[Rfam]
The family of this 46-nucleotide RNA sequence from Stylosanthes viscosa is "Plastid-rpl16 group II-D1 intron". On this family, see Richter et al., Plant Commun 2023: "Retrograde signaling in plants: A critical review focusing on the GUN pathway and beyond". Pairs were carried over by alignment from the consensus structure, which was predicted with LocARNA.

RNA sequence: AAGAGCACCGAGUCAAUAAAAACUGAGAAGGUUGAUUCAAGAAAAG
Numbered sequence: 001a002a003g004a005g006c007a008c009c010g011a012g013u014c015a016a017u018a019a020a021a022a023c024u025g026a027g028a029a030g031g032u033u034g035a036u037u038c039a040a041g042a043a044a045a046g
Stems, first nucleotide, its partner, number of pairs: 010038008